Background: Rfam assigns this 102-nucleotide RNA sequence to the family "pemK RNA". By type it is a cis-regulatory element.

[Rfam]
RNA sequence: ACAAUGAUACUUCUGUCCAGCCGUAGACCGCGCUAUAAAAGGCGUGUAUGCAAGCAUCGGGGACAGUCCGGGCAGAGCGCCGGGAAGGUGAAAUUCCUAUGG
Numbered sequence: 001a002c003a004a005u006g007a008u009a010c011u012u013c014u015g016u017c018c019a020g021c022c023g024u025a026g027a028c029c030g031c032g033c034u035a036u037a038a039a040a041g042g043c044g045u046g047u048a049u050g051c052a053a054g055c056a057u058c059g060g061g062g063a064c065a066g067u068c069c070g071g072g073c074a075g076a077g078c079g080c081c082g083g084g085a086a087g088g089u090g091a092a093a094u095u096c097c098u099a100u101g102g
Base pairs, nucleotide, nucleotide: 012099013066014065015064016063017062018061067085068084069083071081072080073079086098087097088096
Dot-bracket structure: ...........(((((((..........................................))))))(((.(((.....))).)))(((.......))))...